Shown here is a 77-nucleotide sequence from Lawsonibacter faecis, a member of the family "Fluoride riboswitch aptamer (crcB RNA motif)". The base pairs follow the family's consensus structure, which is taken from published work. Rfam 15.1 lists 2,293 matches to the family in 1,982 species. A search with the family's covariance model found it, with a score of 44 bits. The source organism's lineage runs through Bacteria, Bacillati, Eubacteriales, Oscillospiraceae and Lawsonibacter.

RNA sequence: UUAAGCCAAGGGAAUGAAGUUCUCCCGCGGCCUACUGGGCCUGAACCGCUGAGAAGGCUGAUGACUUCUGCAACAUG
Number, nucleotide and partner (000 for none) at each position: 001u000002u000003a000004a000005g000006c000007c000008a000009a000010g026011g025012g024013a023014a000015u000016g068017a067018a066019g065020u064021u063022c000023u013024c012025c011026c010027g000028c000029g000030g000031c000032c000033u000034a000035c000036u000037g000038g000039g000040c000041c000042u000043g000044a000045a000046c000047c000048g058049c057050u056051g000052a000053g000054a000055a000056g050057g049058c048059u000060g000061a000062u000063g021064a020065c019066u018067u017068c016069u000070g000071c000072a000073a000074c000075a000076u000077g000